[Rfam]
RNA: Staphylococcus-1 RNA
RNA sequence: CAAGCAAAUCUAAAUACUUUUUGCAUUAGUGAAAAGAUGAUCGACUAAUCCUUAGUUAAGCUGUUAUAAGGAUUGCCCUUUGAGGUUUCAGCAAUAGGUUGCCCUAUGUGUCGUUCAGAGUAUUUGCUUA
Numbered sequence: 001c002a003a004g005c006a007a008a009u010c011u012a013a014a015u016a017c018u019u020u021u022u023g024c025a026u027u028a029g030u031g032a033a034a035a036g037a038u039g040a041u042c043g044a045c046u047a048a049u050c051c052u053u054a055g056u057u058a059a060g061c062u063g064u065u066a067u068a069a070g071g072a073u074u075g076c077c078c079u080u081u082g083a084g085g086u087u088u089c090a091g092c093a094a095u096a097g098g099u100u101g102c103c104c105u106a107u108g109u110g111u112c113g114u115u116c117a118g119a120g121u122a123u124u125u126g127c128u129u130a
Base pairs, nucleotide, nucleotide: 002129003128004127005126006125007124008123009122017036018035019034020033021032022031023030039116040115042113043112044111045110047074048073049072050071051070052069053068060092061091062090063089094107095106096105097104098103